The family of this 97-nucleotide RNA sequence from Pseudonocardia broussonetiae is "Bacterial small signal recognition particle RNA". For this family Rfam cites "SRPDB: Signal Recognition Particle Database" (Rosenblad et al., Nucleic Acids Res, 2003). The match comes from Rfam's covariance-model search (70 bits). Rfam describes the family as follows. The signal recognition particle (SRP) is a universally conserved ribonucleoprotein involved in the co-translational targeting of proteins to membranes. The base pairs follow the family's consensus structure, which is taken from published work.
[Rfam]
RNA sequence: ACCCGGGUCCCGCGUGACGCCCAUCCUGUGAACUCCCCCAGGGCCGGAAGGCAGCAAGGGUCAACAGGCUCUGGCGGGUGCGCGGGGCCCGCCUACU
Numbered sequence: 001a002c003c004c005g006g007g008u009c010c011c012g013c014g015u016g017a018c019g020c021c022c023a024u025c026c027u028g029u030g031a032a033c034u035c036c037c038c039c040a041g042g043g044c045c046g047g048a049a050g051g052c053a054g055c056a057a058g059g060g061u062c063a064a065c066a067g068g069c070u071c072u073g074g075c076g077g078g079u080g081c082g083c084g085g086g087g088c089c090c091g092c093c094u095a096c097u
Stems, first nucleotide, its partner, number of pairs: 004091011015078001018076004025068005035060003043052003